RNA sequence: AUCGCUUCUCGGCCUUUUGGCUAAGAUCAAGUGUGUAGUAUCUGUUCUUAUCAGCUUAUGGAGCCUAGUCGGGUUUGUAACCCGCUAAGCCACAACGGGAACUCCCUUAUUUUAUUUUUUAAAUUAAAUUAAAUUAAAUUAAAUUAAAUUAAAUUAAAUUUCUUUAUGGUUGCAUCUGUGGCAUAUGGAAGCACCU
Dot-bracket structure: ......(((.((((....)))).)))......................(((.(((((.............))))).))).((((.(.......).))))...........................((((.(((....(......).))).))))...(((((.((((.............)))).))))).....
The record is a 196-nucleotide sequence from Catagonus wagneri, which matches "U2 spliceosomal RNA" in Rfam. The family is grouped with related families in Rfam's "U2 clan". NCBI's taxonomy places the organism under Eukaryota, Eumetazoa, Tetrapoda, Suina, Catagonus. It scores 75 bits against the family's covariance model. Rfam's curators write: U2 is a small nuclear RNA (snRNA) component of the spliceosome (involved in pre-mRNA splicing). Complementary binding between U2 snRNA (in an area lying towards the 5' end but 3' to hairpin I) and the branchpoint sequence (BPS) of the intron results the bulging out of an unpaired adenosine, on the BPS, which initiates a nucleophilic attack at the intronic 5' splice site, thus starting the first of two transesterification reactions that mediate splicing. It is annotated as a spliceosomal small nuclear RNA.